[Rfam]
Rfam assigns this 161-nucleotide RNA sequence from Paenibacillus sp. OAS669 to the family "PyrR binding site". Taxonomically the source falls in Paenibacillus (Bacteria, Bacillota, Bacilli, Caryophanales). On this family, see Bonner et al., Nucleic Acids Res 2001: "Molecular recognition of pyr mRNA by the Bacillus subtilis attenuation regulatory protein PyrR". It is annotated as a cis-regulatory element.

RNA sequence: AGCACCUUUAAGUAUCAGUCCCGUGAGGCUGGCAAGGUGAACGAAUGGAAUGAACGGUAAUGGAGACAUCUCCGUAGUCUGCGCGUACAGACUUCGUGUGUCCACGGCCGCUUCUAUCUCUGUGCACGCAAACCUUGCCUAAUAAGCAAGGUUUUUUGUUU
Numbered sequence: 001a002g003c004a005c006c007u008u009u010a011a012g013u014a015u016c017a018g019u020c021c022c023g024u025g026a027g028g029c030u031g032g033c034a035a036g037g038u039g040a041a042c043g044a045a046u047g048g049a050a051u052g053a054a055c056g057g058u059a060a061u062g063g064a065g066a067c068a069u070c071u072c073c074g075u076a077g078u079c080u081g082c083g084c085g086u087a088c089a090g091a092c093u094u095c096g097u098g099u100g101u102c103c104a105c106g107g108c109c110g111c112u113u114c115u116a117u118c119u120c121u122g123u124g125c126a127c128g129c130a131a132a133c134c135u136u137g138c139c140u141a142a143u144a145a146g147c148a149a150g151g152u153u154u155u156u157u158g159u160u161u
Base pairs, nucleotide, nucleotide: 003039004038005037006036007035008034015032016031017030018029019028020027052125054123055122056121057120060117061116062115063114064113065112128156130154131153132152133151134150135149136148137147138146140144